RNA: Bacterial large subunit ribosomal RNA, nucleotides 2706 to 2967
Organism: Herpetosiphon aurantiacus
RNA sequence: GGAUGAUUGCGUGGGGCUGGCCCUAGUACGAGAGGACCGGGCUGGACAGACCGCUGGUGGACGAGUUGUGGGACGACCCGCAAGGCUCGGUAGCUACGUCUGGGACGGAGAACCGCUGACAGCAUCUAAGUGGGAAACCGGCCACAAGAUCAGUCAUCCAUGUGCAGAAAUGUAUGAGAGGCACCGUCGAGACGAGACGGACAACUGGGUUGCUGUGGAGGCCGUGUGAACGGUAGAGCAGACAACAACAGACAGCCGAGCG
Numbered sequence: 001g002g003a004u005g006a007u008u009g010c011g012u013g014g015g016g017c018u019g020g021c022c023c024u025a026g027u028a029c030g031a032g033a034g035g036a037c038c039g040g041g042c043u044g045g046a047c048a049g050a051c052c053g054c055u056g057g058u059g060g061a062c063g064a065g066u067u068g069u070g071g072g073a074c075g076a077c078c079c080g081c082a083a084g085g086c087u088c089g090g091u092a093g094c095u096a097c098g099u100c101u102g103g104g105a106c107g108g109a110g111a112a113c114c115g116c117u118g119a120c121a122g123c124a125u126c127u128a129a130g131u132g133g134g135a136a137a138c139c140g141g142c143c144a145c146a147a148g149a150u151c152a153g154u155c156a157u158c159c160a161u162g163u164g165c166a167g168a169a170a171u172g173u174a175u176g177a178g179a180g181g182c183a184c185c186g187u188c189g190a191g192a193c194g195a196g197a198c199g200g201a202c203a204a205c206u207g208g209g210u211u212g213c214u215g216u217g218g219a220g221g222c223c224g225u226g227u228g229a230a231c232g233g234u235a236g237a238g239c240a241g242a243c244a245a246c247a248a249c250a251g252a253c254a255g256c257c258g259a260g261c262g
Stems, first nucleotide, its partner, number of pairs: 001159008011145004017045007047102005055096003062089005067082006106140003113133005162175003180257003184200005205251003209246004213241003221234005